The record is a 287-nucleotide RNA sequence from Molossus molossus, which matches "Mason-Pfizer monkey virus packaging signal" in Rfam. Rfam describes the family as follows. This family represents a group of sequences that are related to the Mason-Pfizer monkey virus (MPMV) packaging signal. The packaging signal is located in the 5' UTR and is required for specific RNA encapsidation. The match comes from Rfam's covariance-model search (101 bits). Rfam 15.1 lists 2,921 matches to the family in 53 species. The base pairs follow the family's consensus structure, which was predicted with PFOLD.
RNA sequence: UGGCGCCCAACGUGGGGUUCCAGCACGGGGGAUCCAGUGAAGGACGCCGUUCGAGUGGCCAGCAGAAAGGAAAUCAAAGAAAAAGAAAGUAAAAGAAAAGAGGGAACGACGUGGGAACCUGCUGCGUCUGCACCCCUCAGAUAAGUGAACGGCGAUUAUGGGUCAAGCAUUGAGCCAAGAUAAGAUGUUGGUUGAAGGACUAGGAAAGGCUAUCAAGGCACGAGGAGUAAAGGUGAAAAUGAAGCAUUUGUGUGAGUAUUUUGAUUAUACUAAGGAAGCGUGCCCUU
Numbered sequence: 001u002g003g004c005g006c007c008c009a010a011c012g013u014g015g016g017g018u019u020c021c022a023g024c025a026c027g028g029g030g031g032a033u034c035c036a037g038u039g040a041a042g043g044a045c046g047c048c049g050u051u052c053g054a055g056u057g058g059c060c061a062g063c064a065g066a067a068a069g070g071a072a073a074u075c076a077a078a079g080a081a082a083a084a085g086a087a088a089g090u091a092a093a094a095g096a097a098a099a100g101a102g103g104g105a106a107c108g109a110c111g112u113g114g115g116a117a118c119c120u121g122c123u124g125c126g127u128c129u130g131c132a133c134c135c136c137u138c139a140g141a142u143a144a145g146u147g148a149a150c151g152g153c154g155a156u157u158a159u160g161g162g163u164c165a166a167g168c169a170u171u172g173a174g175c176c177a178a179g180a181u182a183a184g185a186u187g188u189u190g191g192u193u194g195a196a197g198g199a200c201u202a203g204g205a206a207a208g209g210c211u212a213u214c215a216a217g218g219c220a221c222g223a224g225g226a227g228u229a230a231a232g233g234u235g236a237a238a239a240u241g242a243a244g245c246a247u248u249u250g251u252g253u254g255a256g257u258a259u260u261u262u263g264a265u266u267a268u269a270c271u272a273a274g275g276a277a278g279c280g281u282g283c284c285c286u287u
Base pairs, nucleotide, nucleotide: 006031007030008029012026013025014024036051037050038049039048100138101137102135103134107130110126111125112124113123114122146165147164148163150162153160154159172213174210175209176208221263222262223261224260225259227257228256231249232248233247234246235245272287273286274285275284